The family of this 298-nucleotide RNA sequence is "Hairpin ribozyme 2 from viruses-like metatranscriptomes". On this family, see Weinberg et al., Nucleic Acids Res 2021: "Identification of over 200-fold more hairpin ribozymes than previously known in diverse circular RNAs". Hairpin-meta ribozymes were recognised in metatranscriptomic sequences of viruses-like organisms, it was proved by co-transcriptional assays that hairpin-meta1 and hairpin-meta2 non-coding RNA (ncRNAs) are catalytically active and it is suggested that they likely replicate as circular single-stranded RNAs.

[Rfam]
RNA sequence: UAAACGGAUAUCGUAAUCCGGUGCUGUGUGUGGUACCUGGUUUGGAUACCAGAGAGGUUAGGAGACAGCUUCUAAAGAUUUAUCUUGGCGAGGGGAAACCCAGGGUAGCUCCCAUCUGAGUACGUCGCAUCCUAACAUGCCAAUCCGGAGAAUGGGGUGAAACUCCUCUGUAAUCCGGUCAGGGAAUCUCAUUCCGCUUAUGGAAGAACUUAUCGCCAUAAGGUGACGCGUCGGGAAGCGUGUUGUUGAGGAAACACGGUCUCUCUGCAGUUCGGGGAGGCCGGCAUAUUACUCAUAU
Numbered sequence: 001u002a003a004a005c006g007g008a009u010a011u012c013g014u015a016a017u018c019c020g021g022u023g024c025u026g027u028g029u030g031u032g033g034u035a036c037c038u039g040g041u042u043u044g045g046a047u048a049c050c051a052g053a054g055a056g057g058u059u060a061g062g063a064g065a066c067a068g069c070u071u072c073u074a075a076a077g078a079u080u081u082a083u084c085u086u087g088g089c090g091a092g093g094g095g096a097a098a099c100c101c102a103g104g105g106u107a108g109c110u111c112c113c114a115u116c117u118g119a120g121u122a123c124g125u126c127g128c129a130u131c132c133u134a135a136c137a138u139g140c141c142a143a144u145c146c147g148g149a150g151a152a153u154g155g156g157g158u159g160a161a162a163c164u165c166c167u168c169u170g171u172a173a174u175c176c177g178g179u180c181a182g183g184g185a186a187u188c189u190c191a192u193u194c195c196g197c198u199u200a201u202g203g204a205a206g207a208a209c210u211u212a213u214c215g216c217c218a219u220a221a222g223g224u225g226a227c228g229c230g231u232c233g234g235g236a237a238g239c240g241u242g243u244u245g246u247u248g249a250g251g252a253a254a255c256a257c258g259g260u261c262u263c264u265c266u267g268c269a270g271u272u273c274g275g276g277g278a279g280g281c282c283g284g285c286a287u288a289u290u291a292c293u294c295a296u297a298u
Stems, first nucleotide, its partner, number of pairs: 005020005021241004029233002033229002037052004057136005075086004087126004247295003257283011